RNA sequence: GAAAUUCGAUUAACGCUUGGUCACUGACUAAGCCAACUGGAAG
Number, nucleotide and partner (000 for none) at each position: 001g000002a000003a000004a000005u000006u000007c000008g000009a000010u000011u000012a000013a000014c000015g033016c032017u031018u030019g029020g028021u027022c000023a000024c000025u000026g000027a021028c020029u019030a018031a017032g016033c015034c000035a000036a000037c000038u000039g000040g000041a000042a000043g000
RNA: nuoG RNA
Organism: Citrobacter freundii